[Rfam]
RNA sequence: GGUUAGUAAUUAACUGUACCGAAGACAGUAGGUGGCGUAAGCCUUAAUUUCCUACCGAGGACAUUUAUUGAGAACAUUCAAUAGUCCCUCUAUGUCUACGGUGGCAUAGGGUAUUUUUUUGUAAAAA
Numbered sequence: 001g002g003u004u005a006g007u008a009a010u011u012a013a014c015u016g017u018a019c020c021g022a023a024g025a026c027a028g029u030a031g032g033u034g035g036c037g038u039a040a041g042c043c044u045u046a047a048u049u050u051c052c053u054a055c056c057g058a059g060g061a062c063a064u065u066u067a068u069u070g071a072g073a074a075c076a077u078u079c080a081a082u083a084g085u086c087c088c089u090c091u092a093u094g095u096c097u098a099c100g101g102u103g104g105c106a107u108a109g110g111g112u113a114u115u116u117u118u119u120u121g122u123a124a125a126a127a
Base pairs, nucleotide, nucleotide: 028055029054030053031052032051034043035042036041088111089110090109091108092107093106094105095104096103

Source information: The family of this 127-nucleotide sequence from Enterococcus pallens is "Ribosomal protein L10 leader". A search with the family's covariance model found it, with a score of 79 bits. The literature on the family includes a 1994 paper in Prog Nucleic Acid Res Mol Biol by Zengel and Lindahl, "Diverse mechanisms for regulating ribosomal protein synthesis in Escherichia coli". Rfam describes the family as follows. This family is a putative r-protein leader autoregulatory structure found in B. subtilis and other low-GC Gram-positive bacteria.